Rfam assigns this 131-nucleotide RNA sequence from Rhinolophus ferrumequinum to the family "U11 spliceosomal RNA". The family's consensus secondary structure is taken from published work. Taxonomically the source falls in Rhinolophus (Eukaryota, Chordata, Laurasiatheria, Rhinolophoidea). By type it is a spliceosomal small nuclear RNA. The family has 72 seed sequences and 2,595 matches in Rfam 15.1.
RNA sequence: AAAAAGAGCUCUGUCAUGAGUGGUACAUGCAGGGCAGCUUGAUUGCCCUGCGUGCAGAAUCGACAUCAAGAGAUUUCGGAAGCAUGAUUUUUUUGGUACCUGGGCAGCUGAUAGUAGGUCCUGGUGCCCUU
Numbered sequence: 001a002a003a004a005a006g007a008g009c010u011c012u013g014u015c016a017u018g019a020g021u022g023g024u025a026c027a028u029g030c031a032g033g034g035c036a037g038c039u040u041g042a043u044u045g046c047c048c049u050g051c052g053u054g055c056a057g058a059a060u061c062g063a064c065a066u067c068a069a070g071a072g073a074u075u076u077c078g079g080a081a082g083c084a085u086g087a088u089u090u091u092u093u094u095g096g097u098a099c100c101u102g103g104g105c106a107g108c109u110g111a112u113a114g115u116a117g118g119u120c121c122u123g124g125u126g127c128c129c130u131u
Stems, first nucleotide, its partner, number of pairs: 008083002010080002012025005026054012055078001057076005102129004107125003110120003